[Rfam]
RNA: Purine riboswitch aptamer
Nucleotides: 100
Stems, first nucleotide, its partner, number of pairs: 018086008029048007057076007
Number, partner (000 for none) and nucleotide at each position: 001000u002000u003000c004000a005000a006000a007000c008000a009000u010000u011000a012000u013000u014000u015000c016000a017000u018086u019085u020084u021083u022082c023081g024080u025079a026000u027000a028000g029048g030047u031046g032045c033044g034043g035042g036000a037000a038000u039000a040000g041000g042035c043034c044033c045032g046031c047030a048029u049000g050000u051000c052000u053000c054000u055000a056000c057076c058075c059074g060073g061072u062071c063070g064000c065000c066000g067000g068000a069000a070063c071062g072061a073060u074059c075058g076057g077000a078000c079025u080024a081023c082022g083021g084020a085019a086018a087000a088000c089000g090000a091000c092000u093000g094000c095000c096000c097000g098000g099000g100000g